[Rfam]
Nucleotides: 072
Stems, first nucleotide, its partner, number of pairs: 001071007010025004027043002030040002048064005
Number, partner (000 for none) and nucleotide at each position: 001071g002070u003069u004068c005067c006066c007065u008000u009000a010025g011024u012023u013022a014000a015000a016000u017000g018000g019000a020000u021000a022013u023012a024011a025010c026000a027043a028042g029000c030040g031039c032000c033000u034000c035000c036000u037000a038000a039031g040030c041000a042028c043027u044000a045000g046000u047000u048064g049063u050062g051061g052060g053000u054000u055000c056000g057000a058000u059000u060052c061051c062050c063049g064048c065007a066006g067005g068004g069003a070002a071001c072000a